This 109-nucleotide RNA sequence from Sorghum bicolor belongs to the Rfam family "MIR5565 microRNA precursor family". Rfam links the family to the GO terms RISC complex and miRNA-mediated post-transcriptional gene silencing. The organism belongs to Sorghum, within Eukaryota. The family's consensus secondary structure was predicted with RNAalifold.
[Rfam]
RNA sequence: GUAGUCGGAUCCGCAUCAAUCUACAUGUGUUGGAGUGGAUUGGAGUAGAAAUUGAAUUAAAUUUCACCUCAAUCCACUCCAACACAUGUGGAUUGAGGCGAAUCCGACA
Numbered sequence: 001g002u003a004g005u006c007g008g009a010u011c012c013g014c015a016u017c018a019a020u021c022u023a024c025a026u027g028u029g030u031u032g033g034a035g036u037g038g039a040u041u042g043g044a045g046u047a048g049a050a051a052u053u054g055a056a057u058u059a060a061a062u063u064u065c066a067c068c069u070c071a072a073u074c075c076a077c078u079c080c081a082a083c084a085c086a087u088g089u090g091g092a093u094u095g096a097g098g099c100g101a102a103u104c105c106g107a108c109a
Stems, first nucleotide, its partner, number of pairs: 004108007012100003016096017035077009045067002